[Rfam]
RNA sequence: GGGCUGGCUUUAGCUCAGCGGUUACUUCGACUUCGCAUCGUUCGUUACCGACCAUUAAGGGUUGUGUUCGAACACCACUACAAUCAAUCGCUUACAUUAACCUGUGAGUGGUUGGUUCGAGGCCCGCGGGCGCUCUCCAGCCCUUUU
Numbered sequence: 001g002g003g004c005u006g007g008c009u010u011u012a013g014c015u016c017a018g019c020g021g022u023u024a025c026u027u028c029g030a031c032u033u034c035g036c037a038u039c040g041u042u043c044g045u046u047a048c049c050g051a052c053c054a055u056u057a058a059g060g061g062u063u064g065u066g067u068u069c070g071a072a073c074a075c076c077a078c079u080a081c082a083a084u085c086a087a088u089c090g091c092u093u094a095c096a097u098u099a100a101c102c103u104g105u106g107a108g109u110g111g112u113u114g115g116u117u118c119g120a121g122g123c124c125c126g127c128g129g130g131c132g133c134u135c136u137c138c139a140g141c142c143c144u145u146u147u
Base pairs, nucleotide, nucleotide: 002142003141004140005139006138007137013131014130015129016128018127019126020125021124026121027120028119029118030117

The family of this 147-nucleotide sequence from Neotoma lepida is "Vault RNA". It scores 75 bits against the family's covariance model. By type it is a non-coding RNA gene.